[Rfam]
RNA: narK RNA
Organism: Pseudogulbenkiania ferrooxidans
RNA sequence: GGCACAGCGAUUGCUAAAUAGCCGGCAGGCGGACCAACGGCGGUCCGCACUUGAAAGGGACAACGGCGUCCC
Numbered sequence: 001g002g003c004a005c006a007g008c009g010a011u012u013g014c015u016a017a018a019u020a021g022c023c024g025g026c027a028g029g030c031g032g033a034c035c036a037a038c039g040g041c042g043g044u045c046c047g048c049a050c051u052u053g054a055a056a057g058g059g060a061c062a063a064c065g066g067c068g069u070c071c072c
Stems, first nucleotide, its partner, number of pairs: 029048007